The family of this 72-nucleotide RNA from Crocodylus porosus is "Mammalian CPEB3 ribozyme".

[Rfam]
RNA sequence: ACACGUUCAAAGCCAUAGCAGAAGUGCUUAUAGCAUGGCCUGUCAGAUUCCAACAAAACUGCAAAUUCUGCU
Numbered sequence: 001a002c003a004c005g006u007u008c009a010a011a012g013c014c015a016u017a018g019c020a021g022a023a024g025u026g027c028u029u030a031u032a033g034c035a036u037g038g039c040c041u042g043u044c045a046g047a048u049u050c051c052a053a054c055a056a057a058a059c060u061g062c063a064a065a066u067u068c069u070g071c072u
Base pairs, nucleotide, nucleotide: 012039013038014037017072018071019070020069021068022067023066024036025035026034044061045060046059048057049056

The source organism's lineage runs through Eukaryota, Euteleostomi, Dipnotetrapodomorpha, Archelosauria and Crocodylus.